A member of the RNA family "RAGATH-18 RNA" from Lachnospira multipara, 73 nucleotides long. It is annotated as a small RNA. The match comes from Rfam's covariance-model search (70 bits). About the family: Actinobacteria, Firmicutes, Fusobacteria, Thermotogae (1 example).
[Rfam]
RNA sequence: CCUAUGGAGAGUACAAGAACUUGUGAGUAGAUAGGUAUUUAUACCAUCAAAAGCAUGCUCGCUGAAGUAGGAA
Numbered sequence: 001c002c003u004a005u006g007g008a009g010a011g012u013a014c015a016a017g018a019a020c021u022u023g024u025g026a027g028u029a030g031a032u033a034g035g036u037a038u039u040u041a042u043a044c045c046a047u048c049a050a051a052a053g054c055a056u057g058c059u060c061g062c063u064g065a066a067g068u069a070g071g072a073a
Base pairs, nucleotide, nucleotide: 001071002070003069004068005067009060010059011058012057013056022055023054024053030048031047032046034045035044036043037042
Dot-bracket structure: (((((...(((((........(((.....(((.((((....)))))))....))))))))......)))))..